[Rfam]
The family of this 123-nucleotide RNA from Drosophila virilis is "U5 spliceosomal RNA".
It is one of the family's seed sequences.
The family has 180 seed sequences and 28,527 matches in Rfam 15.1.
It is annotated as a spliceosomal small nuclear RNA.
About the family: U5 RNA is a component of both types of known spliceosome. The precise function of this molecule is unknown, though it is known that the 5' loop is required for splice site selection and p220 binding, and that both the 3' stem-loop and the Sm site are important for Sm protein binding and cap methylation.
The family's consensus secondary structure is taken from published work.
RNA sequence: UCACUCUGGCUUCUCUUCAGUUGUCGAAUAAAUCUUUCGCCUUUUACUAAAGAUUUCCGUGGAGAGGAGCACUCUAAUGAGUCUAAAAUAAUUUUUGCUAGUGCCCGAUUGCAAAAUUGGGCC
Numbered sequence: 001u002c003a004c005u006c007u008g009g010c011u012u013c014u015c016u017u018c019a020g021u022u023g024u025c026g027a028a029u030a031a032a033u034c035u036u037u038c039g040c041c042u043u044u045u046a047c048u049a050a051a052g053a054u055u056u057c058c059g060u061g062g063a064g065a066g067g068a069g070c071a072c073u074c075u076a077a078u079g080a081g082u083c084u085a086a087a088a089u090a091a092u093u094u095u096u097g098c099u100a101g102u103g104c105c106c107g108a109u110u111g112c113a114a115a116a117u118u119g120g121g122c123c
Base pairs, nucleotide, nucleotide: 003082004081005080006079009070010069011068012067013066014065015064016063017062018061019060030056031055032054033053034052035051036050037049103122104121105120106119107118108117